[Rfam]
RNA: SraG RNA
RNA sequence: CUUCUUAUUGCAUCCUCGCGACUAAUGACAAUCCUUACCCCGUUGGAUAAAGUCUCUCAUUAGCCGCGCGAAAUUCAGCAAUUGAAGAAUCUACUUAAGCAACAACGCAUUACCUAGAAAGGUUAUUGCUCCCUAGAAGAAAGGGGCCACAAAAGGCCCCUUUCU
Numbered sequence: 001c002u003u004c005u006u007a008u009u010g011c012a013u014c015c016u017c018g019c020g021a022c023u024a025a026u027g028a029c030a031a032u033c034c035u036u037a038c039c040c041c042g043u044u045g046g047a048u049a050a051a052g053u054c055u056c057u058c059a060u061u062a063g064c065c066g067c068g069c070g071a072a073a074u075u076c077a078g079c080a081a082u083u084g085a086a087g088a089a090u091c092u093a094c095u096u097a098a099g100c101a102a103c104a105a106c107g108c109a110u111u112a113c114c115u116a117g118a119a120a121g122g123u124u125a126u127u128g129c130u131c132c133c134u135a136g137a138a139g140a141a142a143g144g145g146g147c148c149a150c151a152a153a154a155g156g157c158c159c160c161u162u163u164c165u
Stems, first nucleotide, its partner, number of pairs: 001087004007082001010079002017070004022063007093123002143160006